Shown here is a 101-nucleotide sequence from Paenibacillus protaetiae, a member of the family "Purine riboswitch aptamer".

[Rfam]
RNA sequence: CAAACAGCAUAUAUACUACUUCGUAUAAUCUUGGGAAUCGGCCCUGGAGUUUCUACGAGAUCACCGUAAAUGAUCUGGCUACGAAAAAAGGAAAAGUUCCG
Numbered sequence: 001c002a003a004a005c006a007g008c009a010u011a012u013a014u015a016c017u018a019c020u021u022c023g024u025a026u027a028a029u030c031u032u033g034g035g036a037a038u039c040g041g042c043c044c045u046g047g048a049g050u051u052u053c054u055a056c057g058a059g060a061u062c063a064c065c066g067u068a069a070a071u072g073a074u075c076u077g078g079c080u081a082c083g084a085a086a087a088a089a090g091g092a093a094a095a096g097u098u099c100c101g
Base pairs, nucleotide, nucleotide: 020085021084022083023082024081025080029048030047031046033044034043035042058076059075060074061073062072063071